[Rfam]
RNA sequence: UUUUGAAUUGCAUAGCAUAUCCGUAUAAUCCUUGGGAAUAGGGCCCAGGAGUCUCUACAAAACCACCGUAAAUGGUUUUACUACAAUCGGAUGAGAAACUGGA
Numbered sequence: 001u002u003u004u005g006a007a008u009u010g011c012a013u014a015g016c017a018u019a020u021c022c023g024u025a026u027a028a029u030c031c032u033u034g035g036g037a038a039u040a041g042g043g044c045c046c047a048g049g050a051g052u053c054u055c056u057a058c059a060a061a062a063c064c065a066c067c068g069u070a071a072a073u074g075g076u077u078u079u080a081c082u083a084c085a086a087u088c089g090g091a092u093g094a095g096a097a098a099c100u101g102g103a
Base pairs, nucleotide, nucleotide: 018089023084024083025082029050030049031048033047034046035045036044059079060078061077062076063075064074065073
Shown here is a 103-nucleotide RNA sequence from Pullulanibacillus camelliae, a member of the family "Purine riboswitch aptamer". From the family's description: Riboswitches are metabolite binding domains within certain messenger RNAs that serve as precision sensors for their corresponding targets. The organism belongs to Pullulanibacillus, within Bacteria. It scores 63 bits against the family's covariance model.